RNA: mir-4667 microRNA precursor family
RNA sequence: GGAACUUGAGGUCCUGAUUGGGGGCAGAAGGAGAACCCAAGGAAAGUUGACUUGGAGGCCCUUUCUGUCCCCACAGGACUUUGGCCUGG
Numbered sequence: 001g002g003a004a005c006u007u008g009a010g011g012u013c014c015u016g017a018u019u020g021g022g023g024g025c026a027g028a029a030g031g032a033g034a035a036c037c038c039a040a041g042g043a044a045a046g047u048u049g050a051c052u053u054g055g056a057g058g059c060c061c062u063u064u065c066u067g068u069c070c071c072c073a074c075a076g077g078a079c080u081u082u083g084g085c086c087u088g089g
Stems, first nucleotide, its partner, number of pairs: 003087001006084011019073013033059001036057001037055005